[Rfam]
RNA: Lysine riboswitch aptamer
Organism: [Anoxybacillus] calidus
Nucleotides: 182
Stems, first nucleotide, its partner, number of pairs: 006177006016084004021078004032068007088117012118144011146167007
Number, partner (000 for none) and nucleotide at each position: 001000a002000g003000u004000g005000a006177a007176g008175a009174u010173a011172g012000a013000g014000g015000u016084g017083c018082g019081a020000a021078c022077u023076u024075c025000a026000a027000g028000a029000g030000u031000a032068g033067g034066c035065a036064u037063u038062c039000u040000g041000a042000g043000g044000a045000a046000a047000a048000u049000g050000a051000g052000u053000u054000c055000c056000g057000a058000u059000g060000a061000u062038g063037a064036a065035u066034g067033u068032u069000g070000a071000a072000a073000g074000g075024g076023g077022a078021g079000c080000g081019u082018c083017g084016c085000c086000g087000a088117a089116g090115u091114g092113g093112a094111a095110a096109a097108a098107g099106u100000c101000u102000c103000a104000u105000u106099g107098c108097u109096u110095u111094u112093u113092c114091u115090g116089c117088u118144g119143g120142u121141c122140c123139u124138g125137c126136g127135u128134u129000u130000a131000a132000g133000a134128a135127a136126u137125g138124u139123a140122g141121g142120a143119c144118u145000g146167u147166c148165a149164a150163g151162a152161u153000g154000a155000g156000a157000a158000a159000c160000c161152a162151u163150c164149u165148u166147g167146g168000a169000g170000a171000g172011c173010u174009a175008u176007c177006u178000c179000a180000c181000u182000g